[Rfam]
RNA sequence: UGCAGCUUUGUCAAAUUCAGUGCUCUCUUUACUAGGUUGCACUGGCCAAAAUAGCUGCAACAGUAAGUGUAAUUCAUGGGCCUCGCAAUUCUUCGCAAUGGAUUGAGAGGAUAAACAUGUAUUACUGACAAAC
Number, nucleotide and partner (000 for none) at each position: 001u000002g058003c057004a056005g055006c000007u000008u000009u000010g000011u000012c000013a000014a000015a000016u000017u000018c044019a043020g042021u041022g040023c039024u000025c000026u036027c035028u034029u000030u000031a000032c000033u000034a028035g027036g026037u000038u000039g023040c022041a021042c020043u019044g018045g000046c000047c000048a000049a000050a000051a000052u000053a000054g000055c005056u004057g003058c002059a000060a000061c000062a000063g000064u000065a000066a000067g000068u000069g125070u124071a123072a122073u121074u119075c000076a000077u000078g000079g000080g000081c110082c109083u108084c000085g000086c107087a000088a000089u000090u000091c000092u000093u000094c000095g000096c000097a000098a000099u000100g000101g000102a000103u000104u000105g000106a000107g086108a083109g082110g081111a000112u000113a000114a000115a000116c000117a000118u000119g074120u000121a073122u072123u071124a070125c069126u000127g000128a000129c000130a000131a000132a000133c000